Notes:
The record is a 168-nucleotide RNA sequence from Polarella glacialis, which matches "ACEA small nucleolar RNA U3" in Rfam. A reference for the family is Zwieb (1997), "The uRNA database", Nucleic Acids Res. Small nucleolar RNAs (snoRNAs) are involved in the processing and modification of rRNA in the nucleolus. There are two main classes of snoRNAs: the box C/D class, and the box H/ACA class. Rfam classes the family as a C/D-box small nucleolar RNA. It scores 62 bits against the family's covariance model.
RNA sequence: UCGACUGUACUUGCACAGGAUCACUGCUACAGUGAUUCCUCUUGCACACAUAUCAUAAAACAGAGCUUCACAGCAUCUCUGAUGAUGUCGAUCUCUGCACUGAUAAGGAUUUUGCUGGAGCUCGCUCCCAGCUUGAUGAAAUCUAUCAGCGCAGUCUUCUGAAGAGAU
Number, nucleotide and partner (000 for none) at each position: 001u000002c000003g039004a000005c000006u035007g000008u034009a033010c032011u031012u000013g000014c000015a000016c000017a028018g027019g000020a025021u000022c000023a000024c000025u020026g000027c018028u017029a000030c000031a011032g010033u009034g008035a006036u000037u000038c000039c003040u000041c000042u000043u000044g066045c065046a000047c063048a000049c000050a000051u059052a000053u000054c000055a000056u000057a000058a000059a051060a000061c000062a000063g047064a000065g045066c044067u000068u000069c000070a000071c000072a000073g000074c000075a000076u167077c166078u165079c164080u163081g000082a000083u000084g000085a000086u000087g000088u000089c000090g000091a000092u000093c000094u000095c154096u153097g152098c151099a000100c149101u148102g147103a146104u145105a144106a000107g000108g143109a142110u141111u140112u000113u000114g132115c131116u130117g000118g127119a126120g125121c000122u000123c000124g000125c120126u119127c118128c000129c000130a116131g115132c114133u000134u000135g000136a000137u000138g000139a000140a111141a110142u109143c108144u105145a104146u103147c102148a101149g100150c000151g098152c097153a096154g095155u000156c000157u000158u000159c000160u000161g000162a000163a080164g079165a078166g077167a076168u000